[Rfam]
RNA sequence: UGCAACACGUUGAGAAGGAGUAGUACAUUCAAUGUUACUUUUCAAGAGAGCUAACGGUUGGUGGAAGUUAGUAAAGUGCAUGAAUCGAAUGGACCUUUGAGUGGUGCCUUGAACAUGAAAGUAGAGACAUCCGGCGGCAACCGUUACUUGCGAGAGGUGACAUAGGUCACAACUGAGGUGGUACCGCGGAUUGAUUUCGUCCUCCAU
Numbered sequence: 001u002g003c004a005a006c007a008c009g010u011u012g013a014g015a016a017g018g019a020g021u022a023g024u025a026c027a028u029u030c031a032a033u034g035u036u037a038c039u040u041u042u043c044a045a046g047a048g049a050g051c052u053a054a055c056g057g058u059u060g061g062u063g064g065a066a067g068u069u070a071g072u073a074a075a076g077u078g079c080a081u082g083a084a085u086c087g088a089a090u091g092g093a094c095c096u097u098u099g100a101g102u103g104g105u106g107c108c109u110u111g112a113a114c115a116u117g118a119a120a121g122u123a124g125a126g127a128c129a130u131c132c133g134g135c136g137g138c139a140a141c142c143g144u145u146a147c148u149u150g151c152g153a154g155a156g157g158u159g160a161c162a163u164a165g166g167u168c169a170c171a172a173c174u175g176a177g178g179u180g181g182u183a184c185c186g187c188g189g190a191u192u193g194a195u196u197u198c199g200u201c202c203u204c205c206a207u
Stems, first nucleotide, its partner, number of pairs: 007102002015097004027085005039075003050072006104130003108126003132143003157170005175204004186200005
RNA: T-box leader